[Rfam]
About this RNA:
A member of the RNA family "MIR5565 microRNA precursor family" from Sorghum bicolor, 110 nucleotides long. The base pairs follow the family's consensus structure, which was predicted with RNAalifold. It scores 96 bits against the family's covariance model.
Nucleotides: 110
Base pairs, nucleotide, nucleotide: 004109005108006107007106008105009104010103011102012101013100014099017097018096019095020094021093022092023091024090025089026088027087028086029085030084031083032082033081036078037077038076039075040074041073042072043071046068047067048066
Number, partner (000 for none) and nucleotide at each position: 001000c002000u003000u004109g005108u006107c007106g008105g009104a010103u011102u012101u013100a014099c015000u016000u017097u018096c019095a020094a021093u022092c023091c024090a025089u026088g027087u028086g029085u030084g031083u032082u033081g034000a035000u036078g037077u038076g039075g040074a041073u042072u043071g044000a045000a046068g047067u048066a049000g050000a051000a052000u053000u054000u055000a056000g057000u058000u059000c060000a061000a062000a063000u064000u065000u066048u067047a068046c069000u070000c071043u072042a073041a074040u075039u076038c077037a078036u079000u080000u081033c082032a083031a084030c085029a086028c087027a088026u089025g090024u091023g092022g093021a094020u095019u096018g097017a098000u099014g100013u101012g102011a103010a104009u105008c106007c107006g108005a109004c110000u